This 295-nucleotide sequence from Xylanibacillus composti belongs to the Rfam family "T-box leader". From the family's description: Uncharged tRNA acts as the effector for transcription antitermination of genes in the T-box leader family. T-boxes are found upstream of many aminoacyl-tRNA synthetase genes and some amino acid biosynthetic genes usually in Gram-positive bacteria. The family's consensus secondary structure is taken from published work. It is annotated as a cis-regulatory leader.
RNA sequence: CAAAAUGCUGUGAAGGAACCAAGCAAGCUGUGCCCCCUGCAGAGAGCCGGUGUUCGCUGCGAACCGGUGGAGGAACCCUUGCGGAGCAUUCCUGAGCAGCUGCGCUGAACUUGGAUGGACAAGCAGUAGGCGCAGCCGGUACAAUCCGUUACCUUGACCCGGUCCAGGAACCGACCAGAUGAAUCAGCUGACUUAGGUCAUGUCGGAUUUUGCGUUCUUGUGACUGACUGAGGCUGUCCGCGCAAGCGGGCUGCGAACAAGGGUGGCACCACGGAUGUAAGCUCUCGUCCCUUAU
Numbered sequence: 001c002a003a004a005a006u007g008c009u010g011u012g013a014a015g016g017a018a019c020c021a022a023g024c025a026a027g028c029u030g031u032g033c034c035c036c037c038u039g040c041a042g043a044g045a046g047c048c049g050g051u052g053u054u055c056g057c058u059g060c061g062a063a064c065c066g067g068u069g070g071a072g073g074a075a076c077c078c079u080u081g082c083g084g085a086g087c088a089u090u091c092c093u094g095a096g097c098a099g100c101u102g103c104g105c106u107g108a109a110c111u112u113g114g115a116u117g118g119a120c121a122a123g124c125a126g127u128a129g130g131c132g133c134a135g136c137c138g139g140u141a142c143a144a145u146c147c148g149u150u151a152c153c154u155u156g157a158c159c160c161g162g163u164c165c166a167g168g169a170a171c172c173g174a175c176c177a178g179a180u181g182a183a184u185c186a187g188c189u190g191a192c193u194u195a196g197g198u199c200a201u202g203u204c205g206g207a208u209u210u211u212g213c214g215u216u217c218u219u220g221u222g223a224c225u226g227a228c229u230g231a232g233g234c235u236g237u238c239c240g241c242g243c244a245a246g247c248g249g250g251c252u253g254c255g256a257a258c259a260a261g262g263g264u265g266g267c268a269c270c271a272c273g274g275a276u277g278u279a280a281g282c283u284c285u286c287g288u289c290c291c292u293u294a295u
Stems, first nucleotide, its partner, number of pairs: 007097002015092004023082005036070002046068006100135007137148003233254002236251004260292004271288004